[Rfam]
RNA: PyrD leader
Organism: Erwinia sorbitola
Nucleotides: 073
Stems, first nucleotide, its partner, number of pairs: 036052006
Number, partner (000 for none) and nucleotide at each position: 001000a002000u003000u004000c005000c006000c007000u008000u009000u010000a011000a012000c013000c014000g015000u016000c017000g018000a019000a020000a021000c022000c023000c024000g025000g026000a027000u028000a029000a030000u031000a032000c033000g034000a035000c036052c037051c038050c039049g040048a041047u042000u043000u044000u045000c046000c047041a048040u049039c050038g051037g052036g053000a054000c055000c056000u057000c058000a059000g060000g061000a062000g063000u064000g065000a066000c067000c068000a069000u070000g071000u072000a073000u